Shown here is a 262-nucleotide sequence from Anaerospora hongkongensis, a member of the family "T-box leader". Gene Ontology term of the family: tRNA binding. It is annotated as a cis-regulatory leader. Lineage of the source: Bacteria > Bacillati > Bacillota > Sporomusaceae > Anaerospora. Uncharged tRNA acts as the effector for transcription antitermination of genes in the T-box leader family. T-boxes are found upstream of many aminoacyl-tRNA synthetase genes and some amino acid biosynthetic genes usually in Gram-positive bacteria. The anticodon of a specific tRNA base pairs to a specifier sequence within the T-box motif, and the NCCA acceptor tail of the tRNA base pairs to a conserved bulge in the T-box antiterminator hairpin.

[Rfam]
RNA sequence: CGAAUAACGAGGAUCAGGAAAAGUAAGCGUAAACUGUUGUCGCAGAGAGCCGGGAAGAGGUGGGAGCCUGGUACUAAAGGUUUGGCUGAAGUUCACCUGGGAGUUGCGGUCUGAAAUUUGCCUGAAGGCAAAGUGUAGGUUACGCCGGAGCCUUUACCGUUACAGAAAGGGAAGUAUCGGCUUAGUGCCCGUACUUUAGCAAGUGAUUCGCCUUUGGCGGAUAAUUUAGGUGGUACCACGGGAAUAACUUCCCGUCCUUUUC
Dot-bracket structure: ......((......((((.......(((..(.......((........((((((............)))))))).......)..)))........))))...))..(((.((.........................)).).)).(((........)))..............................................(((((((...))))))).....(((.......(((((........))))))))....
Numbered sequence: 001c002g003a004a005u006a007a008c009g010a011g012g013a014u015c016a017g018g019a020a021a022a023g024u025a026a027g028c029g030u031a032a033a034c035u036g037u038u039g040u041c042g043c044a045g046a047g048a049g050c051c052g053g054g055a056a057g058a059g060g061u062g063g064g065a066g067c068c069u070g071g072u073a074c075u076a077a078a079g080g081u082u083u084g085g086c087u088g089a090a091g092u093u094c095a096c097c098u099g100g101g102a103g104u105u106g107c108g109g110u111c112u113g114a115a116a117u118u119u120g121c122c123u124g125a126a127g128g129c130a131a132a133g134u135g136u137a138g139g140u141u142a143c144g145c146c147g148g149a150g151c152c153u154u155u156a157c158c159g160u161u162a163c164a165g166a167a168a169g170g171g172a173a174g175u176a177u178c179g180g181c182u183u184a185g186u187g188c189c190c191g192u193a194c195u196u197u198a199g200c201a202a203g204u205g206a207u208u209c210g211c212c213u214u215u216g217g218c219g220g221a222u223a224a225u226u227u228a229g230g231u232g233g234u235a236c237c238a239c240g241g242g243a244a245u246a247a248c249u250u251c252c253c254g255u256c257c258u259u260u261u262c
Stems, first nucleotide, its partner, number of pairs: 007104002015099004026087003031082001039074002049072006107144002109141001111139002146159003206222007228258003238255005